[Rfam]
RNA sequence: GUGCAAAUGAUGGAAAAAUCACUGUUUGGGGGAUAAAAUGAUAUGAACUAAGGAACCAUUGAUGUGC
Numbered sequence: 001g002u003g004c005a006a007a008u009g010a011u012g013g014a015a016a017a018a019u020c021a022c023u024g025u026u027u028g029g030g031g032g033a034u035a036a037a038a039u040g041a042u043a044u045g046a047a048c049u050a051a052g053g054a055a056c057c058a059u060u061g062a063u064g065u066g067c
Stems, first nucleotide, its partner, number of pairs: 001067005
The family of this 67-nucleotide RNA sequence from Catagonus wagneri is "Small nucleolar RNA SNORD42". For this family Rfam cites "RNomics: an experimental approach that identifies 201 candidates for novel, small, non-messenger RNAs in mouse" (Huttenhofer et al., EMBO J, 2001). Rfam 15.1 lists 848 matches to the family in 572 species. The family's consensus secondary structure was predicted with PFOLD. By type it is a C/D-box small nucleolar RNA. Rfam describes the family as follows. snoRNA U42 is found in intron 3 of the ribosomal protein L23a (RPL23a) gene in humans and is also present in mice.